[Rfam]
RNA sequence: GGGGAGUUAGCUCAGUUGGUUAGAGUACUUGCUUGACAUGCAAGGGGUCGAUGGUUCGAGUCCAUUACUCCCCA
Numbered sequence: 001g002g003g004g005a006g007u008u009a010g011c012u013c014a015g016u017u018g019g020u021u022a023g024a025g026u027a028c029u030u031g032c033u034u035g036a037c038a039u040g041c042a043a044g045g046g047g048u049c050g051a052u053g054g055u056u057c058g059a060g061u062c063c064a065u066u067a068c069u070c071c072c073c074a
Base pairs, nucleotide, nucleotide: 001073002072003071004070005069006068007067010026011025012024013023028044029043030042031041032040050066051065052064053063054062

This 74-nucleotide RNA from Thermanaerosceptrum fracticalcis belongs to the Rfam family "tRNA".
The organism belongs to Thermanaerosceptrum, within Bacteria.
It is annotated as a transfer RNA.
About the family: Transfer RNA (tRNA) molecules are approximately 80 nucleotides in length.
Rfam links the family to the GO term triplet codon-amino acid adaptor activity.